[Rfam]
RNA: Alphaproteobacterial ar14
RNA sequence: AAAAUUUCGAUCCAUCAACCCUCCCAUGAUGGGUCGAAUUCGCUCUGAAGGCACCUCCUCCCAAGCUUCUCAGAGCAAACUAGAAACGCUCGCUGCUCCUCCCGCAGCGAGCGUUUUUG
Dot-bracket structure: ......(((.(((((((.........))))))).)))....((((((((((..............))).))))))).........(((((((((((.......))))))))))).....
Numbered sequence: 001a002a003a004a005u006u007u008c009g010a011u012c013c014a015u016c017a018a019c020c021c022u023c024c025c026a027u028g029a030u031g032g033g034u035c036g037a038a039u040u041c042g043c044u045c046u047g048a049a050g051g052c053a054c055c056u057c058c059u060c061c062c063a064a065g066c067u068u069c070u071c072a073g074a075g076c077a078a079a080c081u082a083g084a085a086a087c088g089c090u091c092g093c094u095g096c097u098c099c100u101c102c103c104g105c106a107g108c109g110a111g112c113g114u115u116u117u118u119g
Stems, first nucleotide, its partner, number of pairs: 007037003011033007042076007049068003086114011